This 152-nucleotide RNA from a Thermoflexales bacterium belongs to the Rfam family "Group II catalytic intron D1-D4-7". It scores 118 bits against the family's covariance model. Taxonomically the source falls in Thermoflexales (Bacteria, Bacillati, Chloroflexota, Thermoflexia). Rfam links the family to the GO term Group II intron splicing. Rfam's curators write: Group II introns are found in rRNA, tRNA and mRNA of organelles in fungi, plants and protists, and also in mRNA in bacteria. The base pairs follow the family's consensus structure.
RNA sequence: CCCCGUGUUCUGCCACGGGUACCCUACCCAGACGUGCGACCCAAGUAAUUGGAUGGUACGAAGCUCUGGGGACAAUGUAUCCUUCAUUCGAAAGAAUGGUCAACACCCCGCGAGGGCGACGGACGACUGCCAGCACCAAGGCGGUUGAGGGC
Numbered sequence: 001c002c003c004c005g006u007g008u009u010c011u012g013c014c015a016c017g018g019g020u021a022c023c024c025u026a027c028c029c030a031g032a033c034g035u036g037c038g039a040c041c042c043a044a045g046u047a048a049u050u051g052g053a054u055g056g057u058a059c060g061a062a063g064c065u066c067u068g069g070g071g072a073c074a075a076u077g078u079a080u081c082c083u084u085c086a087u088u089c090g091a092a093a094g095a096a097u098g099g100u101c102a103a104c105a106c107c108c109c110g111c112g113a114g115g116g117c118g119a120c121g122g123a124c125g126a127c128u129g130c131c132a133g134c135a136c137c138a139a140g141g142c143g144g145u146u147g148a149g150g151g152c
Stems, first nucleotide, its partner, number of pairs: 002019006028069005033060005039054001041052004084099006108115002126145006
Dot-bracket structure: .((((((......))))))........((((((((((.(.((((....)))).).)))))....)))))..............((((((....))))))........((....))..........((((((........)))))).......